[Rfam]
Description
This 138-nucleotide sequence from Mobilisporobacter senegalensis belongs to the Rfam family "Ribosomal protein L10 leader". From the family's description: This family is a putative r-protein leader autoregulatory structure found in B. subtilis and other low-GC Gram-positive bacteria. It is located in the 5' untranslated regions of mRNAs encoding ribosomal proteins L10 and L12 (rplJ-rplL). A Rho-independent transcription terminator structure that is probably involved in regulation is included at the 3' end. The family's consensus secondary structure was predicted with CMfinder.
RNA sequence: AAUUUAGACCCAAAACUGCCGAAGACAGUAGGUGCCGCAAGGCAUAAGGAGAAAACGCCUACCGAGGAAUAUAAGAGAUCAUAAUGAUGACUUAUUUUAACCUCUCUGUCUUUGAUAGAGAGGUUUUUUAUCGGCGGU
Dot-bracket structure: ...........................(((((((((....))).............))))))......................................((((((((((...))))))))))...............